This 215-nucleotide RNA from Sorghum bicolor belongs to the Rfam family "MIR6217 microRNA precursor family".
Pairs were carried over by alignment from the consensus structure, which was predicted with RNAalifold.
[Rfam]
RNA sequence: UGGCUAUAAAAUAACUUAUUUUGUAGCCACUUUAAGUUACAAUAAUUACUAUAUUAAUUUAACUUCUUACUAAGUGGUUUACUAUAACAUCAUGGUAAAUAUCCCCAUGUAUUAUAGUAACUCAACUAUCGUAAAUAUGUAUACAUAUUAUCGUAAAUUAAUAUAUAAAAUUAUCAUAAAUGGAGGUGGCUAAAGAAUAAUUUAUUUUGUAGCUA
Number, nucleotide and partner (000 for none) at each position: 001u215002g214003g213004c212005u211006a210007u209008a208009a207010a206011a205012u204013a203014a202015c000016u200017u199018a198019u197020u196021u195022u194023g000024u192025a191026g190027c189028c188029a187030c186031u185032u184033u183034a000035a000036g000037u179038u178039a177040c000041a000042a174043u173044a172045a171046u170047u169048a000049c000050u165051a164052u163053a162054u161055u160056a159057a158058u157059u000060u143061a142062a000063c000064u000065u000066c000067u134068u133069a132070c131071u000072a000073a000074g129075u128076g127077g126078u125079u124080u119081a118082c117083u116084a115085u114086a113087a112088c000089a110090u109091c000092a000093u000094g104095g103096u000097a000098a000099a000100u000101a000102u000103c095104c094105c000106c000107a000108u000109g090110u089111a000112u087113u086114a085115u084116a083117g082118u081119a080120a000121c000122u000123c000124a079125a078126c077127u076128a075129u074130c000131g070132u069133a068134a067135a000136u000137a000138u000139g000140u000141a000142u061143a060144c000145a000146u000147a000148u000149u000150a000151u000152c000153g000154u000155a000156a000157a058158u057159u056160a055161a054162u053163a052164u051165a050166u000167a000168a000169a047170a046171u045172u044173a043174u042175c000176a000177u039178a038179a037180a000181u000182g000183g033184a032185g031186g030187u029188g028189g027190c026191u025192a024193a000194a022195g021196a020197a019198u018199a017200a016201u000202u014203u013204a012205u011206u010207u009208u008209g007210u006211a005212g004213c003214u002215a001